[Rfam]
RNA sequence: AGCUUGUCCGGGUCCACCGCCCGGGAGGCGAGCAGAUAGUCCCGCAUCACGAUGCCGUGCCGGCCCUC
Numbered sequence: 001a002g003c004u005u006g007u008c009c010g011g012g013u014c015c016a017c018c019g020c021c022c023g024g025g026a027g028g029c030g031a032g033c034a035g036a037u038a039g040u041c042c043c044g045c046a047u048c049a050c051g052a053u054g055c056c057g058u059g060c061c062g063g064c065c066c067u068c
Stems, first nucleotide, its partner, number of pairs: 004063003008059001012029002015027001017025002035056001037054002040052002044048001
Notes:
A member of the RNA family "ASdes TB sRNA" from Streptomyces fungicidicus, 68 nucleotides long. NCBI's taxonomy places the organism under Bacteria, Bacillati, Actinomycetes, Kitasatosporales, Streptomyces. The family's RNA type in Rfam is small RNA. On this family, see Arnvig and Young, Mol Microbiol 2009: "Identification of small RNAs in Mycobacterium tuberculosis". Rfam 15.1 lists 1,192 matches to the family in 825 species. It scores 61 bits against the family's covariance model.